[Rfam]
The family of this 93-nucleotide sequence from Vagococcus allomyrinae is "Group II catalytic intron D1-D4-1".
About the family: Group II introns are found in rRNA, tRNA and mRNA of organelles in fungi, plants and protists, and also in mRNA in bacteria.
Rfam links the family to the GO term Group II intron splicing.
NCBI's taxonomy places the organism under Bacteria, Bacillota, Bacilli, Enterococcaceae, Vagococcus.
The match comes from Rfam's covariance-model search (52 bits).
On this family, see Bonen and Vogel, Trends Genet 2001: "The ins and outs of group II introns".
RNA sequence: AAACGCUCAUAGUGAUAUGAGUCUGGAAAGUGAGCAGUCAGCCGAAGCCAUAGUAGUGAUGACGCAAGGUGAAAACCUUGAAGAGCGAAGGGC
Numbered sequence: 001a002a003a004c005g006c007u008c009a010u011a012g013u014g015a016u017a018u019g020a021g022u023c024u025g026g027a028a029a030g031u032g033a034g035c036a037g038u039c040a041g042c043c044g045a046a047g048c049c050a051u052a053g054u055a056g057u058g059a060u061g062a063c064g065c066a067a068g069g070u071g072a073a074a075a076c077c078u079u080g081a082a083g084a085g086c087g088a089a090g091g092g093c
Base pairs, nucleotide, nucleotide: 002024005022006021007020008019009018010017011016038045039044047093048092049091056086057085065080066079067078